SAM riboswitch aptamer (S box leader): a 106-nucleotide RNA sequence from Luoshenia tenuis. A search with the family's covariance model found it, with a score of 90 bits.
RNA sequence: UCCUUAUCCAGAGCGGUGGAGGGAAUGGGCCCGAUGAAACCCGGCAACCGGUUUAUAACAAACAAGGUGCUAAAUCCCACAGCAUGGCGAUGCUGAAAGAUGAGGA
Numbered sequence: 001u002c003c004u005u006a007u008c009c010a011g012a013g014c015g016g017u018g019g020a021g022g023g024a025a026u027g028g029g030c031c032c033g034a035u036g037a038a039a040c041c042c043g044g045c046a047a048c049c050g051g052u053u054u055a056u057a058a059c060a061a062a063c064a065a066g067g068u069g070c071u072a073a074a075u076c077c078c079a080c081a082g083c084a085u086g087g088c089g090a091u092g093c094u095g096a097a098a099g100a101u102g103a104g105g106a
Stems, first nucleotide, its partner, number of pairs: 001106008013042001015041003021032003026079004043071004048067002051063003075098001080095006